RNA: mir-217 microRNA precursor family
Organism: Salvelinus namaycush
RNA sequence: AGCUUCUUGAUGUUGAUGAUACUGCAUCAGGAACUGAUUGGAUGAUGUCGAUGGGCCACCAGUUCUUGAUGCAUUGCCUUCAGCAUUGAAAGA
Numbered sequence: 001a002g003c004u005u006c007u008u009g010a011u012g013u014u015g016a017u018g019a020u021a022c023u024g025c026a027u028c029a030g031g032a033a034c035u036g037a038u039u040g041g042a043u044g045a046u047g048u049c050g051a052u053g054g055g056c057c058a059c060c061a062g063u064u065c066u067u068g069a070u071g072c073a074u075u076g077c078c079u080u081c082a083g084c085a086u087u088g089a090a091a092g093a
Stems, first nucleotide, its partner, number of pairs: 023073005029067008039058003